Annotation
Shown here is a 75-nucleotide sequence from Streptomyces cellostaticus, a member of the family "ASpks TB sRNA". For this family Rfam cites "Identification of small RNAs in Mycobacterium tuberculosis" (Arnvig and Young, Mol Microbiol, 2009). It is annotated as an antisense RNA.

RNA sequence: CUUCACCGACCCCAGCAGCAACGGCCGGCCCUCCGGCCGAUCCUGACCAUAAGUGGCCAGCAGCGCCUGUGCCUC
Numbered sequence: 001c002u003u004c005a006c007c008g009a010c011c012c013c014a015g016c017a018g019c020a021a022c023g024g025c026c027g028g029c030c031c032u033c034c035g036g037c038c039g040a041u042c043c044u045g046a047c048c049a050u051a052a053g054u055g056g057c058c059a060g061c062a063g064c065g066c067c068u069g070u071g072c073c074u075c
Base pairs, nucleotide, nucleotide: 015025016024031071033069038065039064043060044059045058047056048055049054